[Rfam]
RNA sequence: CCCGUCGUGAGGCGGAAUCUGAAGGAAGCCGGAAUAGGGGCUGAAAGUUCCCCGAAUGGGCAAAGCUCUGGCCUGACGAACAGAAAUCGCAUAUAAGGCCGGAGGCGAGGGUAAGUUUGCAUAGCAAAACAAAGCCCAAUCGCUACACGGAAUCGCUUUUCGGUAAAUGCGGCAGGUAAAGAGGAAAAGAACGUGUG
Numbered sequence: 001c002c003c004g005u006c007g008u009g010a011g012g013c014g015g016a017a018u019c020u021g022a023a024g025g026a027a028g029c030c031g032g033a034a035u036a037g038g039g040g041c042u043g044a045a046a047g048u049u050c051c052c053c054g055a056a057u058g059g060g061c062a063a064a065g066c067u068c069u070g071g072c073c074u075g076a077c078g079a080a081c082a083g084a085a086a087u088c089g090c091a092u093a094u095a096a097g098g099c100c101g102g103a104g105g106c107g108a109g110g111g112u113a114a115g116u117u118u119g120c121a122u123a124g125c126a127a128a129a130c131a132a133a134g135c136c137c138a139a140u141c142g143c144u145a146c147a148c149g150g151a152a153u154c155g156c157u158u159u160u161c162g163g164u165a166a167a168u169g170c171g172g173c174a175g176g177u178a179a180a181g182a183g184g185a186a187a188a189g190a191a192c193g194u195g196u197g
Stems, first nucleotide, its partner, number of pairs: 002015005053197002056194002061189001066183004071177005087172006098164003102159007109137004115130004

Rfam assigns this 197-nucleotide RNA sequence from Firmicutes bacterium CAG:137 to the family "Group II catalytic intron D1-D4-3".
The pairing is the family consensus, mapped onto this sequence.